[Rfam]
RNA sequence: CCGUGCUAAAUGGGGAAUUAGCGAUGCCUUGUAACCUGCAAUUCGCUGUAGCAGGAUUGAAGCCUUGUGGAGGAUAAAUUUUUGUAUAGUCAGCCCCAUAAAAGUGGUGUUGAAGAUUGGGUCCUACGCAACGAAUGCUCAUGAACCGUGUCAGGUCUUGACGGAAGCAGCACUAAGUGAGAAGUUUCGUGUGCCGUGGGAGUGCCUGGUUGGAGCUAACUCUAUGGGUACCGUGUAUGAAUUUUAUUCGAUAUAAGGUGCACGG
Numbered sequence: 001c002c003g004u005g006c007u008a009a010a011u012g013g014g015g016a017a018u019u020a021g022c023g024a025u026g027c028c029u030u031g032u033a034a035c036c037u038g039c040a041a042u043u044c045g046c047u048g049u050a051g052c053a054g055g056a057u058u059g060a061a062g063c064c065u066u067g068u069g070g071a072g073g074a075u076a077a078a079u080u081u082u083u084g085u086a087u088a089g090u091c092a093g094c095c096c097c098a099u100a101a102a103a104g105u106g107g108u109g110u111u112g113a114a115g116a117u118u119g120g121g122u123c124c125u126a127c128g129c130a131a132c133g134a135a136u137g138c139u140c141a142u143g144a145a146c147c148g149u150g151u152c153a154g155g156u157c158u159u160g161a162c163g164g165a166a167g168c169a170g171c172a173c174u175a176a177g178u179g180a181g182a183a184g185u186u187u188c189g190u191g192u193g194c195c196g197u198g199g200g201a202g203u204g205c206c207u208g209g210u211u212g213g214a215g216c217u218a219a220c221u222c223u224a225u226g227g228g229u230a231c232c233g234u235g236u237a238u239g240a241a242u243u244u245u246a247u248u249c250g251a252u253a254u255a256a257g258g259u260g261c262a263c264g265g
Stems, first nucleotide, its partner, number of pairs: 001265006009058003012030004017025003035055005063258007072249005081241008093229001096227005104220002106217003115211008123200006129191002132189004138181005148173004156165003

Bacterial large signal recognition particle RNA: a 265-nucleotide sequence from Peptoniphilus sp. BV3C26. Gene Ontology terms of the family: SRP-dependent cotranslational protein targeting to membrane, signal sequence recognition and signal recognition particle, plasma membrane targeting. The family's consensus secondary structure is taken from published work. A search with the family's covariance model found it, with a score of 193 bits. Rfam's curators write: The signal recognition particle (SRP) is a universally conserved ribonucleoprotein involved in the co-translational targeting of proteins to membranes. Rfam classes the family as a non-coding RNA gene. The source organism's lineage runs through Bacteria, Bacillota, Tissierellia, Tissierellales and Peptoniphilus.